[Rfam]
RNA sequence: CGGGUGCAGCCGUGCCGGGCAGGACGACGCCAUGUUGGUGGUGUGGUGAUCCAAUCGGCUCGGCGAGAC
Numbered sequence: 001c002g003g004g005u006g007c008a009g010c011c012g013u014g015c016c017g018g019g020c021a022g023g024a025c026g027a028c029g030c031c032a033u034g035u036u037g038g039u040g041g042u043g044u045g046g047u048g049a050u051c052c053a054a055u056c057g058g059c060u061c062g063g064c065g066a067g068a069c
Stems, first nucleotide, its partner, number of pairs: 009064004015058002022052003025048002028043004
This 69-nucleotide RNA sequence from Trypanosoma vivax belongs to the Rfam family "Trypanosomatid snoRNA TB10Cs3H2". By type it is an H/ACA-box small nucleolar RNA. The family's consensus secondary structure was predicted with WAR.